A member of the RNA family "Bacterial small subunit ribosomal RNA" from Aquaticitalea lipolytica, 349 nucleotides of a longer RNA.
The organism belongs to Aquaticitalea, within Bacteria.
RNA sequence: GGUUUAAAGGGUCCGUAGGUGGAUAAUUAAGUCAGAGGUGAAAUCCUGCAGCUCAACUGUAGAAUUGCCUUUGAUACUGGUUAUCUUGAAUUAUUAUGAAGUAGUUAGAAUAUGUAGUGUAGCGGUGAAAUGCAUAGAUAUUACAUAGAAUACCAAUUGCGAAGGCAGAUUACUAAUAAUAUAUUGACACUGAUGGACGAAAGCGUGGGGAGCGAACAGGAUUAGAUACCCUGGUAGUCCACGCCGUAAACGAUGGAUACUAGCUGUUCGGAGCAAUCUGAGUGGCUAAGCGAAAGUGAUAAGUAUCCCACCUGGGGAGUACGUUCGCAAGAAUGAAACUCAAAGGAAU
Numbered sequence: 001g002g003u004u005u006a007a008a009g010g011g012u013c014c015g016u017a018g019g020u021g022g023a024u025a026a027u028u029a030a031g032u033c034a035g036a037g038g039u040g041a042a043a044u045c046c047u048g049c050a051g052c053u054c055a056a057c058u059g060u061a062g063a064a065u066u067g068c069c070u071u072u073g074a075u076a077c078u079g080g081u082u083a084u085c086u087u088g089a090a091u092u093a094u095u096a097u098g099a100a101g102u103a104g105u106u107a108g109a110a111u112a113u114g115u116a117g118u119g120u121a122g123c124g125g126u127g128a129a130a131u132g133c134a135u136a137g138a139u140a141u142u143a144c145a146u147a148g149a150a151u152a153c154c155a156a157u158u159g160c161g162a163a164g165g166c167a168g169a170u171u172a173c174u175a176a177u178a179a180u181a182u183a184u185u186g187a188c189a190c191u192g193a194u195g196g197a198c199g200a201a202a203g204c205g206u207g208g209g210g211a212g213c214g215a216a217c218a219g220g221a222u223u224a225g226a227u228a229c230c231c232u233g234g235u236a237g238u239c240c241a242c243g244c245c246g247u248a249a250a251c252g253a254u255g256g257a258u259a260c261u262a263g264c265u266g267u268u269c270g271g272a273g274c275a276a277u278c279u280g281a282g283u284g285g286c287u288a289a290g291c292g293a294a295a296g297u298g299a300u301a302a303g304u305a306u307c308c309c310a311c312c313u314g315g316g317g318a319g320u321a322c323g324u325u326c327g328c329a330a331g332a333a334u335g336a337a338a339c340u341c342a343a344a345g346g347a348a349u
Base pairs, nucleotide, nucleotide: 001312002311003310009309011198012197013196014195016192018191019190020189022085023084024083025082026081027080028079030078031077032074033073034072035071036070037069038068039067040066046062047061048060049059050058051057089185090184091183092181093180094179095178096177097176100174101173102172103171104170105169106168107151111147112146113145114144115143116142117141118140122133123132124131159166160165203244204243205242206241207240208239212238213237217233218232219231220230255308256307257306258305259304260303263286264285265284266283267282268281269280270279271278272277290297291296314341315340316339323334324333325332326331